[Rfam]
RNA: ALIL pseudoknot
Organism: Kibdelosporangium phytohabitans
RNA sequence: GGCGUCUUUCUUCGCGGCGGAGCUGGACCGUCCGUCGCGGUGAAGGUGGAGUUCGUCGAUUCCCAGCGGGAGGAGCACGGUGUCCAGCCGGUCCUGCGGGUGCUUGAGGGCACACCCGCCGAGAUCGCACCG
Numbered sequence: 001g002g003c004g005u006c007u008u009u010c011u012u013c014g015c016g017g018c019g020g021a022g023c024u025g026g027a028c029c030g031u032c033c034g035u036c037g038c039g040g041u042g043a044a045g046g047u048g049g050a051g052u053u054c055g056u057c058g059a060u061u062c063c064c065a066g067c068g069g070g071a072g073g074a075g076c077a078c079g080g081u082g083u084c085c086a087g088c089c090g091g092u093c094c095u096g097c098g099g100g101u102g103c104u105u106g107a108g109g110g111c112a113c114a115c116c117c118g119c120c121g122a123g124a125u126c127g128c129a130c131c132g
Stems, first nucleotide, its partner, number of pairs: 016032005078132005089127002092124002